[Rfam]
Nucleotides: 192
Base pairs, nucleotide, nucleotide: 004042005041006040012035013034014033015032016031018029019028020027021026057185058184059183060182061181062180063083064082066080067079068078069077070076087133088132089131090130091129096128097127098126099125102124103123105118106117107116108115109114135171136170138168139167141165142164143163144162145161146160149158150157
Number, partner (000 for none) and nucleotide at each position: 001000u002000g003000u004042c005041g006040c007000c008000c009000g010000u011000u012035u013034c014033g015032u016031g017000a018029u019028g020027g021026u022000c023000a024000c025000g026021g027020c028019c029018a030000c031016c032015a033014u034013g035012a036000c037000u038000g039000u040006g041005c042004g043000a044000a045000a046000u047000c048000u049000u050000g051000a052000u053000c054000u055000g056000g057185u058184c059183g060182c061181g062180c063083c064082g065000c066080u067079g068078g069077c070076c071000c072000a073000c074000g075000a076070g077069g078068c079067c080066a081000c082064c083063g084000c085000c086000a087133u088132g089131c090130g091129c092000a093000c094000u095000u096128c097127g098126g099125a100000g101000a102124c103123c104000g105118c106117c107116g108115g109114c110000a111000g112000c113000a114109g115108c116107c117106g118105g119000g120000u121000c122000c123103g124102g125099u126098c127097c128096g129091g130090c131089g132088c133087a134000g135171u136170u137000u138168c139167c140000c141165c142164g143163c144162u145161g146160a147000u148000c149158g150157g151000c152000c153000a154000a155000g156000a157150c158149c159000u160146u161145c162144g163143g164142c165141g166000a167139g168138g169000c170136g171135a172000c173000g174000u175000a176000g177000a178000u179000a180062g181061c182060g183059c184058g185057a186000u187000c188000g189000g190000u191000c192000g